This 133-nucleotide sequence from Balaenoptera physalus belongs to the Rfam family "Small nucleolar RNA SNORA43". It is annotated as an H/ACA-box small nucleolar RNA. Rfam's curators write: ACA43 is a member of the H/ACA class of snoRNA that guide the sites of modification of uridines to pseudouridines. Pairs were carried over by alignment from the consensus structure, which was predicted with RNAfold. It scores 102 bits against the family's covariance model. Rfam links the family to the GO terms RNA processing and nucleolus.

RNA sequence: GAUGCUGGACCCGCUGGCACCACGGGUGUGACUGCCUGCUGCACCUGUGACGUUGGGGCAGAGAGGAAGCAGCUAUUUCUAUGCUUAGUGCUCAGAACAGUGGGUGCUAAGAAUGGUUUGUAGCCGGACAUCG
Numbered sequence: 001g002a003u004g005c006u007g008g009a010c011c012c013g014c015u016g017g018c019a020c021c022a023c024g025g026g027u028g029u030g031a032c033u034g035c036c037u038g039c040u041g042c043a044c045c046u047g048u049g050a051c052g053u054u055g056g057g058g059c060a061g062a063g064a065g066g067a068a069g070c071a072g073c074u075a076u077u078u079c080u081a082u083g084c085u086u087a088g089u090g091c092u093c094a095g096a097a098c099a100g101u102g103g104g105u106g107c108u109a110a111g112a113a114u115g116g117u118u119u120g121u122a123g124c125c126g127g128a129c130a131u132c133g
Base pairs, nucleotide, nucleotide: 003060004059005056006055007054008053022048023047024046025045072124073123079116080115081114084111085110089106090105091104092103093102094101
Dot-bracket structure: ..((((((.............((((...................))))....))))..))...........((.....(((..((...((((((......))))))...))..)))......)).........